This 136-nucleotide RNA sequence from Lupinus albus belongs to the Rfam family "mir-172 microRNA precursor family". Rfam describes the family as follows. mir-172 has been experimentally verified in Arabidopsis thaliana. This family is thought to target mRNAs coding for APETALA2-like transcription factors. The mature sequence is excised from the 3' arm of the hairpin. The organism belongs to Lupinus, within Eukaryota. A search with the family's covariance model found it, with a score of 84 bits.
RNA sequence: UUAUUUGCGGAUGUAGCAUCAUCAAGAUUCACAUUCAAAUGCAGAUGGGUGGAAUCUGAUGCAGUCUAUAUAUGCUCUCUGCCAUGCCAUAAGUCUUUUGAAGUGAGAAUCUUGAUGAUGCUGCAUCAGCCAUAAA
Numbered sequence: 001u002u003a004u005u006u007g008c009g010g011a012u013g014u015a016g017c018a019u020c021a022u023c024a025a026g027a028u029u030c031a032c033a034u035u036c037a038a039a040u041g042c043a044g045a046u047g048g049g050u051g052g053a054a055u056c057u058g059a060u061g062c063a064g065u066c067u068a069u070a071u072a073u074g075c076u077c078u079c080u081g082c083c084a085u086g087c088c089a090u091a092a093g094u095c096u097u098u099u100g101a102a103g104u105g106a107g108a109a110u111c112u113u114g115a116u117g118a119u120g121c122u123g124c125a126u127c128a129g130c131c132a133u134a135a136a
Base pairs, nucleotide, nucleotide: 010127011126012125013124014123015122016121017120018119019118020117021116022115023114024113025112026111027110028109029108030107032105033104034103035102